Background: The family of this 76-nucleotide RNA from Stakelama pacifica is "Makes More Granules Regulator RNA (mmgR)". Rfam describes the family as follows. SuhB later renamed mmgR (makes more granules regulator) was a putative non-coding RNA found multiple times in the Agrobacterium tumefaciens genome and related alpha-proteobacteria. A search with the family's covariance model found it, with a score of 47 bits. The family has 87 seed sequences and 1,791 matches in Rfam 15.1. The literature on the family includes a 2005 paper in Genome Biol by Corbino et al., "Evidence for a second class of S-adenosylmethionine riboswitches and other regulatory RNA motifs in alpha-proteobacteria".
[Rfam]
RNA sequence: GGGUCAGGCCUUUUCAGGCAUCCUCUCCUAAAACUUUUCAAGGGUCGCCUUCGGGCGGCCCCUUUUUUUGCCGCUU
Number, nucleotide and partner (000 for none) at each position: 001g000002g000003g000004u000005c000006a000007g000008g019009c018010c017011u016012u000013u000014u000015c000016a011017g010018g009019c008020a000021u000022c000023c000024u000025c000026u000027c000028c000029u000030a000031a000032a000033a000034c000035u000036u000037u000038u000039c000040a000041a000042g061043g060044g059045u058046c057047g056048c055049c054050u000051u000052c000053g000054g049055g048056c047057g046058g045059c044060c043061c042062c000063u000064u000065u000066u000067u000068u000069u000070g000071c000072c000073g000074c000075u000076u000